A member of the RNA family "tp2" from [Pantoea] beijingensis, 115 nucleotides long. Pairs were carried over by alignment from the consensus structure, which was predicted with RNAalifold. By type it is a small RNA. The match comes from Rfam's covariance-model search (72 bits).
RNA sequence: GGUAUUCCUUAUCUGUGUCUAAUACGUUGAAUUGUCUGGAGCCUGUCUCUCUGUGUUCUGUAAUCUGCAAAACACAAAGAGACAGGCCCGUCGUUUAUACCCUUUGGCUGCGGGA
Numbered sequence: 001g002g003u004a005u006u007c008c009u010u011a012u013c014u015g016u017g018u019c020u021a022a023u024a025c026g027u028u029g030a031a032u033u034g035u036c037u038g039g040a041g042c043c044u045g046u047c048u049c050u051c052u053g054u055g056u057u058c059u060g061u062a063a064u065c066u067g068c069a070a071a072a073c074a075c076a077a078a079g080a081g082a083c084a085g086g087c088c089c090g091u092c093g094u095u096u097a098u099a100c101c102c103u104u105u106g107g108c109u110g111c112g113g114g115a
Stems, first nucleotide, its partner, number of pairs: 001101004024094003039089001041087007050078001052076003056072002059069002